[Rfam]
About this RNA: Shown here is an 87-nucleotide sequence from Flavonifractor sp. An100, a member of the family "c-di-GMP-I riboswitch aptamer". GEMM was predicted in a large-scale screen for bacterial structured RNA regulatory elements.
RNA sequence: UAUCUGAAACGGCAAACCGGCGGAAACGCCGGGACGCAAAGCCAGGGGGCUAAAGCGAAUGCUCGCCAUGCCAGCCCGGCCGCCAGU
Numbered sequence: 001u002a003u004c005u006g007a008a009a010c011g012g013c014a015a016a017c018c019g020g021c022g023g024a025a026a027c028g029c030c031g032g033g034a035c036g037c038a039a040a041g042c043c044a045g046g047g048g049g050c051u052a053a054a055g056c057g058a059a060u061g062c063u064c065g066c067c068a069u070g071c072c073a074g075c076c077c078g079g080c081c082g083c084c085a086g087u
Base pairs, nucleotide, nucleotide: 012037013036017032018031019030020029021028022027041080042079043078045077046076047075048072049071050070055066056065057064058063